[Rfam]
RNA sequence: UCACUCUGGAAAGCAGGACCCGCCCCGGGAGCGCCGUUCACGGGACGGGUCUUCACCGAAGGUGAAAGCCGUCCCGUCAAGGGGCGGUGAAACUCUCAGGUUCUGAUGACAGAGGGGGA
Numbered sequence: 001u002c003a004c005u006c007u008g009g010a011a012a013g014c015a016g017g018a019c020c021c022g023c024c025c026c027g028g029g030a031g032c033g034c035c036g037u038u039c040a041c042g043g044g045a046c047g048g049g050u051c052u053u054c055a056c057c058g059a060a061g062g063u064g065a066a067a068g069c070c071g072u073c074c075c076g077u078c079a080a081g082g083g084g085c086g087g088u089g090a091a092a093c094u095c096u097c098a099g100g101u102u103c104u105g106a107u108g109a110c111a112g113a114g115g116g117g118g119a
Stems, first nucleotide, its partner, number of pairs: 001117002004114005015053008055101003058097002062095001064093001068088007

Rfam assigns this 119-nucleotide sequence from Actinacidiphila paucisporea to the family "Glycine riboswitch aptamer".